Description: The family of this 365-nucleotide RNA from Marinobacter similis is "transfer-messenger RNA".
RNA sequence: GGGGACGACAUGGCUUCGACGCUGGUGGCGAACCCUUGAGUGCAUGUCGAGAUGGCAGCCAAUCUCGUUAAUCCAAAGCUGCAACGCAAUAGUCGCAAACGACGAAAACUACGCACUAGCAGCGUAAGCUGCUAGUCGUCCUGACUGGGUCGCCCGUAGCCCAGAGCUACAUCUCAGGACGUCAUCGCUUACGGGAUGCUCCGUUAUCCAGAGCUCACUGGUUAACGGCUAAGAUAUAAAGAGAUCGCUUCUUGCACCCUGACCUUCGGGUCGCUUGAAGUUAAAUUAAUAGAGGGACGCUAUGCAUGUAGACUCUCAAGGUUGAGUACUGGCGGACGCGGGUUCAAUUCCCGCCGUCUCCACCA
Numbered sequence: 001g002g003g004g005a006c007g008a009c010a011u012g013g014c015u016u017c018g019a020c021g022c023u024g025g026u027g028g029c030g031a032a033c034c035c036u037u038g039a040g041u042g043c044a045u046g047u048c049g050a051g052a053u054g055g056c057a058g059c060c061a062a063u064c065u066c067g068u069u070a071a072u073c074c075a076a077a078g079c080u081g082c083a084a085c086g087c088a089a090u091a092g093u094c095g096c097a098a099a100c101g102a103c104g105a106a107a108a109c110u111a112c113g114c115a116c117u118a119g120c121a122g123c124g125u126a127a128g129c130u131g132c133u134a135g136u137c138g139u140c141c142u143g144a145c146u147g148g149g150u151c152g153c154c155c156g157u158a159g160c161c162c163a164g165a166g167c168u169a170c171a172u173c174u175c176a177g178g179a180c181g182u183c184a185u186c187g188c189u190u191a192c193g194g195g196a197u198g199c200u201c202c203g204u205u206a207u208c209c210a211g212a213g214c215u216c217a218c219u220g221g222u223u224a225a226c227g228g229c230u231a232a233g234a235u236a237u238a239a240a241g242a243g244a245u246c247g248c249u250u251c252u253u254g255c256a257c258c259c260u261g262a263c264c265u266u267c268g269g270g271u272c273g274c275u276u277g278a279a280g281u282u283a284a285a286u287u288a289a290u291a292g293a294g295g296g297a298c299g300c301u302a303u304g305c306a307u308g309u310a311g312a313c314u315c316u317c318a319a320g321g322u323u324g325a326g327u328a329c330u331g332g333c334g335g336a337c338g339c340g341g342g343u344u345c346a347a348u349u350c351c352c353g354c355c356g357u358c359u360c361c362a363c364c365a
Stems, first nucleotide, its partner, number of pairs: 001361007020334008032323001034321007042313001043308005048067005055082005115136009137181006145164006153195006201228006208221001212245001214243003247281005254274002257270003261300001265294003338354005
The match comes from Rfam's covariance-model search (216 bits). About the family: Bacterial tmRNA, also known as 10Sa RNA or SsrA, is named for its dual tRNA and mRNA-like properties. Its role is to liberate the mRNA from a stalled ribosome. To accomplish this part of the tmRNA is used as a reading frame that ends in a translation stop signal. Lineage of the source: Bacteria > Pseudomonadati > Pseudomonadota > Marinobacteraceae > Marinobacter. Pairs were carried over by alignment from the consensus structure, which is taken from published work.